[Rfam]
A member of the RNA family "Purine riboswitch aptamer" from Clostridium tepidiprofundi, 100 nucleotides long. NCBI's taxonomy places the organism under Bacteria, Bacillota, Eubacteriales, Clostridiaceae, Clostridium tepidiprofundi. Pairs were carried over by alignment from the consensus structure, which is taken from published work.
RNA sequence: AAAAAUGAAUACUUAGUUCAUAAUAUAUUUCUGAUAAUAUGGUUCAGAAGUUUCUACCAAAGGCCGUAAAUCUUUGACUAUUAUGAAUUAUGGGGACAUU
Numbered sequence: 001a002a003a004a005a006u007g008a009a010u011a012c013u014u015a016g017u018u019c020a021u022a023a024u025a026u027a028u029u030u031c032u033g034a035u036a037a038u039a040u041g042g043u044u045c046a047g048a049a050g051u052u053u054c055u056a057c058c059a060a061a062g063g064c065c066g067u068a069a070a071u072c073u074u075u076g077a078c079u080a081u082u083a084u085g086a087a088u089u090a091u092g093g094g095g096a097c098a099u100u
Stems, first nucleotide, its partner, number of pairs: 018086008029049006058076006